Source information: Small nucleolar RNA R12: a 75-nucleotide sequence from Apium graveolens. The match comes from Rfam's covariance-model search (66 bits). The family's RNA type in Rfam is C/D-box small nucleolar RNA. A reference for the family is Chen et al. (2003), "The high diversity of snoRNAs in plants: identification and comparative study of 120 snoRNA genes from Oryza sativa", Nucleic Acids Res. Lineage of the source: Eukaryota > Viridiplantae > Magnoliopsida > Mesangiospermae > Apium.

RNA sequence: GAGAGAAUGACGAAAAAAUCAUUCGGAUUCCCUAUGAAUUAUCCCAUGUUUACUAACCAGCUACUUCUGACUCUC
Dot-bracket structure: (((((.................................................................)))))